[Rfam]
Overview
Shown here is a 59-nucleotide RNA sequence from Pseudanabaenaceae cyanobacterium LEGE 13415, a member of the family "Nitrogen stress-induced RNA 1". NCBI's taxonomy places the organism under Bacteria, Bacillati, Cyanobacteriota, Cyanophyceae, Pseudanabaenaceae. Pairs were carried over by alignment from the consensus structure. A reference for the family is Ionescu et al. (2010), "Heterocyst-specific transcription of NsiR1, a non-coding RNA encoded in a tandem array of direct repeats in cyanobacteria", J Mol Biol.

RNA sequence: UGGUAGAUGCACCCUGAUUUAUCGCCUCCGUCCAUGCCUAGUGGAUGGGGGUUUUUUGU
Numbered sequence: 001u002g003g004u005a006g007a008u009g010c011a012c013c014c015u016g017a018u019u020u021a022u023c024g025c026c027u028c029c030g031u032c033c034a035u036g037c038c039u040a041g042u043g044g045a046u047g048g049g050g051g052u053u054u055u056u057u058g059u
Base pairs, nucleotide, nucleotide: 002013003012004011025051026050027049028048029047030046031045032044033043034042035041